[Rfam]
RNA: mir-9223 microRNA precursor family
Nucleotides: 078
Stems, first nucleotide, its partner, number of pairs: 002077002005074013021060005027054004032049002
Number, partner (000 for none) and nucleotide at each position: 001000g002077g003076c004000a005074g006073u007072u008071c009070u010069u011068g012067g013066g014065u015064g016063a017062c018000g019000c020000a021060c022059a023058c024057c025056c026000c027054g028053g029052a030051a031000c032049c033048a034000g035000a036000g037000a038000g039000g040000a041000g042000g043000g044000a045000a046000c047000u048033u049032g050000a051030u052029u053028c054027c055000a056025g057024g058023g059022u060021g061000c062017g063016u064015c065014a066013c067012c068011c069010g070009a071008g072007a073006a074005c075000u076003g077002c078000c